[Rfam]
RNA sequence: AACACAUCAGAUUUCCUGGUGUAACGAAUUUUUUAAGUGCUUCUUGCUUAAGCAAGUUUCAUCCCGACCCCCUCAGGGUCGGGAUUU
Numbered sequence: 001a002a003c004a005c006a007u008c009a010g011a012u013u014u015c016c017u018g019g020u021g022u023a024a025c026g027a028a029u030u031u032u033u034u035a036a037g038u039g040c041u042u043c044u045u046g047c048u049u050a051a052g053c054a055a056g057u058u059u060c061a062u063c064c065c066g067a068c069c070c071c072c073u074c075a076g077g078g079u080c081g082g083g084a085u086u087u
Stems, first nucleotide, its partner, number of pairs: 004022007026059003029055002032052008061085007069077002
Notes: The family of this 87-nucleotide sequence from Escherichia coli is "DsrA RNA". Lineage of the source: Bacteria > Pseudomonadati > Pseudomonadota > Gammaproteobacteria > Escherichia coli. About the family: DsrA RNA regulates both transcription, by overcoming transcriptional silencing by the nucleoid-associated H-NS protein, and translation, by promoting efficient translation of the stress sigma factor, RpoS. These two activities of DsrA can be separated by mutation: the first of three stem-loops of the 85 nucleotide RNA is necessary for RpoS translation but not for anti-H-NS action, while the second stem-loop is essential for antisilencing and less critical for RpoS translation. Pairs were carried over by alignment from the consensus structure, which is taken from published work. For this family Rfam cites "A small RNA acts as an antisilencer of the H-NS-silenced rcsA gene of Escherichia coli" (Sledjeski and Gottesman, Proc Natl Acad Sci USA, 1995).